The record is an 88-nucleotide RNA from Actinidia chinensis, which matches "Small nucleolar RNA Z159/U59" in Rfam. It scores 65 bits against the family's covariance model.
RNA sequence: GUCUCUAAUGAUGAUCCAUGGAUGAACUUUCGUUCUUCUGAGAUCAAUUCCAUGCUGAAAUACUUUUGGAGACCUGAACUGAAGAGAC
Numbered sequence: 001g002u003c004u005c006u007a008a009u010g011a012u013g014a015u016c017c018a019u020g021g022a023u024g025a026a027c028u029u030u031c032g033u034u035c036u037u038c039u040g041a042g043a044u045c046a047a048u049u050c051c052a053u054g055c056u057g058a059a060a061u062a063c064u065u066u067u068g069g070a071g072a073c074c075u076g077a078a079c080u081g082a083a084g085a086g087a088c
Stems, first nucleotide, its partner, number of pairs: 003086004

Source information: For this family Rfam cites "The high diversity of snoRNAs in plants: identification and comparative study of 120 snoRNA genes from Oryza sativa" (Chen et al., Nucleic Acids Res, 2003). The family is grouped with related families in Rfam's "SNORD59 clan".